[Rfam]
RNA sequence: ACCAUUGCCUGACAACGAGAGAGAGCACGCUAGUCUGCAUUCAUGCAUCGAGCAUGACUGUUUACAAGCGUGCUCUCUCUCGUUGUCAUAGAUUU
Number, nucleotide and partner (000 for none) at each position: 001a000002c000003c000004a000005u000006u000007g000008c000009c000010u088011g087012a086013c085014a084015a000016c082017g081018a000019g000020a078021g077022a000023g075024a000025g073026c072027a071028c070029g069030c068031u067032a000033g065034u064035c000036u000037g000038c000039a000040u000041u000042c000043a000044u000045g000046c000047a000048u000049c000050g000051a000052g000053c000054a000055u000056g000057a000058c000059u000060g000061u000062u000063u000064a034065c033066a000067a031068g030069c029070g028071u027072g026073c025074u000075c023076u000077c021078u020079c000080u000081c017082g016083u000084u014085g013086u012087c011088a010089u000090a000091g000092a000093u000094u000095u000
A member of the RNA family "MIR535 microRNA precursor family" from Camellia sinensis, 95 nucleotides long. Taxonomically the source falls in Camellia (Eukaryota, Embryophyta, Magnoliopsida, Ericales). Its family is annotated with miRNA-mediated post-transcriptional gene silencing and RISC complex in the Gene Ontology.